RNA sequence: UUGUCCUGGCCUAUGCUUUUGCUGCUCCCCUGUGCUCACUUCUGACAGAGGGAGUCUGGCAGGACGCACAGUAAUUCUCCCUCUCAGUUUAGGAGGGCCAUCCUGAGAAAAGGACUGGCUCUUAAAGGCACGAGAGGACAAC
Numbered sequence: 001u002u003g004u005c006c007u008g009g010c011c012u013a014u015g016c017u018u019u020u021g022c023u024g025c026u027c028c029c030c031u032g033u034g035c036u037c038a039c040u041u042c043u044g045a046c047a048g049a050g051g052g053a054g055u056c057u058g059g060c061a062g063g064a065c066g067c068a069c070a071g072u073a074a075u076u077c078u079c080c081c082u083c084u085c086a087g088u089u090u091a092g093g094a095g096g097g098c099c100a101u102c103c104u105g106a107g108a109a110a111a112g113g114a115c116u117g118g119c120u121c122u123u124a125a126a127g128g129c130a131c132g133a134g135a136g137g138a139c140a141a142c
Stems, first nucleotide, its partner, number of pairs: 002066007010059002024055003028051002030048004080137006087129004093123007101114004